[Rfam]
RNA sequence: UGGAAGUGAGAUACUCAACAGCUUGAAGAUUUGAGGCUGUUGACACUAUGCAUUUCCUAUAGCAACCUUGCCUUCUGAUGACCACGAAAUACUGAGCUCGUUUUGUGGACAGAUACGAGGCAUACAUGU
Numbered sequence: 001u002g003g004a005a006g007u008g009a010g011a012u013a014c015u016c017a018a019c020a021g022c023u024u025g026a027a028g029a030u031u032u033g034a035g036g037c038u039g040u041u042g043a044c045a046c047u048a049u050g051c052a053u054u055u056c057c058u059a060u061a062g063c064a065a066c067c068u069u070g071c072c073u074u075c076u077g078a079u080g081a082c083c084a085c086g087a088a089a090u091a092c093u094g095a096g097c098u099c100g101u102u103u104u105g106u107g108g109a110c111a112g113a114u115a116c117g118a119g120g121c122a123u124a125c126a127u128g129u
Stems, first nucleotide, its partner, number of pairs: 002057006015043004021037004069122006082108003087103004